The record is an 85-nucleotide sequence from Fervidicola ferrireducens, which matches "c-di-GMP-I riboswitch aptamer" in Rfam.
RNA sequence: UCCUGAAAAAGGCAAACCCGGUGAAAGCCGGGGGCGCAAAGCCGCGGGCCUAAGGGCUUAUGCCUAUGGCAGCCGGGCUGCCGGG
Dot-bracket structure: ...........((...((((((....))))))...))..((((.((((((....(((....)))...)))..)))))))......
Numbered sequence: 001u002c003c004u005g006a007a008a009a010a011g012g013c014a015a016a017c018c019c020g021g022u023g024a025a026a027g028c029c030g031g032g033g034g035c036g037c038a039a040a041g042c043c044g045c046g047g048g049c050c051u052a053a054g055g056g057c058u059u060a061u062g063c064c065u066a067u068g069g070c071a072g073c074c075g076g077g078c079u080g081c082c083g084g085g
Stems, first nucleotide, its partner, number of pairs: 012037002017032006040079004045075003048070003055064003
The source organism's lineage runs through Bacteria, Bacillota, Clostridia, Thermosediminibacterales and Fervidicola. The base pairs follow the family's consensus structure, which is taken from published work. The match comes from Rfam's covariance-model search (86 bits).